[Rfam]
RNA: Histone 3' UTR stem-loop
Organism: Sciurus vulgaris
RNA sequence: CCAAAGGCUCUUUUCAGAGCCAUCCACAUUUUCAUUUAAAGAGCUU
Numbered sequence: 001c002c003a004a005a006g007g008c009u010c011u012u013u014u015c016a017g018a019g020c021c022a023u024c025c026a027c028a029u030u031u032u033c034a035u036u037u038a039a040a041g042a043g044c045u046u
Base pairs, nucleotide, nucleotide: 006021007020008019009018010017011016